[Rfam]
RNA sequence: CUUAAAUCCUCGGGGUGGCCGCUUUCUCAGGCCUGAGAAAAACCCGUUGAACCUGAUCCGGUUAAUGCCGGCGUAGGGAUAGGACACUCUCUCAUAU
Dot-bracket structure: ......((((((((.(((((.........))))......)..)))).....((((..((((......))))..))))...)))).............
The family of this 97-nucleotide RNA from Gilvimarinus sp. DA14 is "TPP riboswitch aptamer (THI element)". A search with the family's covariance model found it, with a score of 75 bits.